A member of the RNA family "Histone 3' UTR stem-loop" from Heterocephalus glaber, 47 nucleotides long. Rfam's curators write: The mRNAs of metazoan histone genes lack a poly-A tail. 3' end processing occurs at a site between a highly conserved stem-loop (modelled by this family) and a purine rich region around 20 nts downstream (the histone downstream element, or HDE). It is annotated as a cis-regulatory element.

RNA sequence: CCAAAGGCUCUUUUCAGAGCCACCCACACGGAUCUUUGAAAAGACCU
Numbered sequence: 001c002c003a004a005a006g007g008c009u010c011u012u013u014u015c016a017g018a019g020c021c022a023c024c025c026a027c028a029c030g031g032a033u034c035u036u037u038g039a040a041a042a043g044a045c046c047u
Base pairs, nucleotide, nucleotide: 006021007020008019009018010017011016